[Rfam]
RNA: MIR394 microRNA precursor family
RNA sequence: CUAACAGAUCUCUAUUGGCAGUAUGCCCACCUCCACUCACAAACACAAAGGUCGAUACACACUUAUAGAAAGAGGAGGUGGACAGAAUGCCAAAGAGCUCUGUAAG
Numbered sequence: 001c002u003a004a005c006a007g008a009u010c011u012c013u014a015u016u017g018g019c020a021g022u023a024u025g026c027c028c029a030c031c032u033c034c035a036c037u038c039a040c041a042a043a044c045a046c047a048a049a050g051g052u053c054g055a056u057a058c059a060c061a062c063u064u065a066u067a068g069a070a071a072g073a074g075g076a077g078g079u080g081g082a083c084a085g086a087a088u089g090c091c092a093a094a095g096a097g098c099u100c101u102g103u104a105a106g
Stems, first nucleotide, its partner, number of pairs: 011096001015093006024084002027081008